[Rfam]
RNA sequence: UUCUUAUCAAGAGCAGGCUGAGGGACUGGCCCAAUGACGCCCGGCAACCGGUAUGUAGAAUACACGGUGCCAAUUCCAGCAGGAUUUAUUUCCUGAAAGAUAAGGG
Numbered sequence: 001u002u003c004u005u006a007u008c009a010a011g012a013g014c015a016g017g018c019u020g021a022g023g024g025a026c027u028g029g030c031c032c033a034a035u036g037a038c039g040c041c042c043g044g045c046a047a048c049c050g051g052u053a054u055g056u057a058g059a060a061u062a063c064a065c066g067g068u069g070c071c072a073a074u075u076c077c078a079g080c081a082g083g084a085u086u087u088a089u090u091u092c093c094u095g096a097a098a099g100a101u102a103a104g105g106g
Stems, first nucleotide, its partner, number of pairs: 001106008013042001016041003022032003026079004043071004048067002051063003075098001080095005